[Rfam]
RNA sequence: CCAGGCUAGUAGACCAUAGCAGUAGUACUCAUGACAUGGCCCUGUCAGAUUCCAACAAAUCUGUGAAUUCUGCU
Numbered sequence: 001c002c003a004g005g006c007u008a009g010u011a012g013a014c015c016a017u018a019g020c021a022g023u024a025g026u027a028c029u030c031a032u033g034a035c036a037u038g039g040c041c042c043u044g045u046c047a048g049a050u051u052c053c054a055a056c057a058a059a060u061c062u063g064u065g066a067a068u069u070c071u072g073c074u
Base pairs, nucleotide, nucleotide: 012041014039015038018074019073020072021071022070024068025037026036046063047062048061049060050059051058

Rfam assigns this 74-nucleotide RNA sequence from Alligator mississippiensis to the family "Mammalian CPEB3 ribozyme". Pairs were carried over by alignment from the consensus structure, which is taken from published work. The source organism's lineage runs through Eukaryota, Eumetazoa, Deuterostomia, Archelosauria and Alligator. About the family: The mammalian CPEB3 ribozyme is a self cleaving RNA located in the second intron of the CPEB3 gene which belongs to a family of genes regulating messenger RNA polyadenylation.